[Rfam]
This 121-nucleotide RNA sequence from Pteropus alecto belongs to the Rfam family "Small nucleolar RNA SNORA28". Rfam's curators write: ACA28 is a member of the H/ACA class of snoRNA that guide the sites of modification of uridines to pseudouridines. Its Rfam clan is "SNORA28 clan". For this family Rfam cites "RNomics: an experimental approach that identifies 201 candidates for novel, small, non-messenger RNAs in mouse" (Huttenhofer et al., EMBO J, 2001).

RNA sequence: GAGUUUACUGUGGCAGAUGAUCAAAACUGUCUGACACAAUUUGAGCUUGCGAUAGCAAGAAAGUUGAACCUCUUCCAAUGUUCUCUUCCAUGAGACAAGCCGUCAUAUAGACUUAAACAGC
Numbered sequence: 001g002a003g004u005u006u007a008c009u010g011u012g013g014c015a016g017a018u019g020a021u022c023a024a025a026a027c028u029g030u031c032u033g034a035c036a037c038a039a040u041u042u043g044a045g046c047u048u049g050c051g052a053u054a055g056c057a058a059g060a061a062a063g064u065u066g067a068a069c070c071u072c073u074u075c076c077a078a079u080g081u082u083c084u085c086u087u088c089c090a091u092g093a094g095a096c097a098a099g100c101c102g103u104c105a106u107a108u109a110g111a112c113u114u115a116a117a118c119a120g121c
Base pairs, nucleotide, nucleotide: 006045008043009038010037011036012035014033015032016031017030018029019028061114062113063112064111065110067108071107073105076102079099082095083094084093085092